[Rfam]
RNA: TD-2 RNA
Nucleotides: 093
Base pairs, nucleotide, nucleotide: 001018002017003016004015005014006013034053035052036051037050039048040047041046056089057088058087059086060085061084062083063082064081065080066079067078068077069076
Number, partner (000 for none) and nucleotide at each position: 001018a002017c003016c004015g005014c006013c007000a008000a009000g010000g011000a012000c013006g014005g015004c016003g017002g018001u019000g020000g021000u022000u023000c024000c025000a026000u027000u028000c029000a030000g031000u032000a033000g034053c035052a036051a037050g038000a039048u040047u041046g042000c043000u044000u045000g046041c047040a048039a049000a050037c051036u052035u053034g054000u055000a056089g057088c058087c059086c060085a061084a062083a063082a064081a065080u066079g067078u068077g069076c070000a071000c072000g073000g074000a075000u076069g077068u078067a079066c080065a081064u082063u083062u084061u085060u086059g087058g088057g089056c090000g091000a092000g093000g